[Rfam]
RNA sequence: AGUUUGUUCACAAACUGCAUACAAUAAUGCGAUGUUUUGUGCAAAGCACAAAACUCGAAGAUAAACAGUGAGGCUGAAUUUCUGCCGAACUGUUUAUCUUAC
Numbered sequence: 001a002g003u004u005u006g007u008u009c010a011c012a013a014a015c016u017g018c019a020u021a022c023a024a025u026a027a028u029g030c031g032a033u034g035u036u037u038u039g040u041g042c043a044a045a046g047c048a049c050a051a052a053a054c055u056c057g058a059a060g061a062u063a064a065a066c067a068g069u070g071a072g073g074c075u076g077a078a079u080u081u082c083u084g085c086c087g088a089a090c091u092g093u094u095u096a097u098c099u100u101a102c
Base pairs, nucleotide, nucleotide: 001016002015003014004013005012006011030057031056032055034054035053036052037051038050039049040048041047060098061097062096063095064094065093066092067091068090069089072086073085
This 102-nucleotide sequence from Treponema denticola belongs to the Rfam family "TD-2 RNA". The literature on the family includes a 2007 paper in Nucleic Acids Res by Weinberg et al., "Identification of 22 candidate structured RNAs in bacteria using the CMfinder comparative genomics pipeline".